[Rfam]
RNA sequence: GCGGGUGCCUUCGGGGCCCGCCGUGAGGGCGUCCUGGCGGACGCCGCUUCAUGUCCAUGUUGCUUGCAACCCUGGAGGAUAUGGCUAUGAGGA
Numbered sequence: 001g002c003g004g005g006u007g008c009c010u011u012c013g014g015g016g017c018c019c020g021c022c023g024u025g026a027g028g029g030c031g032u033c034c035u036g037g038c039g040g041a042c043g044c045c046g047c048u049u050c051a052u053g054u055c056c057a058u059g060u061u062g063c064u065u066g067c068a069a070c071c072c073u074g075g076a077g078g079a080u081a082u083g084g085c086u087a088u089g090a091g092g093a
Base pairs, nucleotide, nucleotide: 001021002020003019004018005017006016008015009014028045029044030043031042032041033040034039048091049090050089051088052087053086055084056083057082058081059080060079061078063077064076065075
This 93-nucleotide sequence from Dokdonella fugitiva belongs to the Rfam family "Repression of heat shock gene expression (ROSE) element". On this family, see Nocker et al., Nucleic Acids Res 2001: "A mRNA-based thermosensor controls expression of rhizobial heat shock genes". Rfam classes the family as an RNA thermoregulator. This family represents a 5' UTR cis-regulatory element found in heat shock mRNAs and is known as the ROSE (repression of heat shock gene expression) element. The ROSE element is a negative regulator of heat shock gene expression. Pairs were carried over by alignment from the consensus structure, which is taken from published work.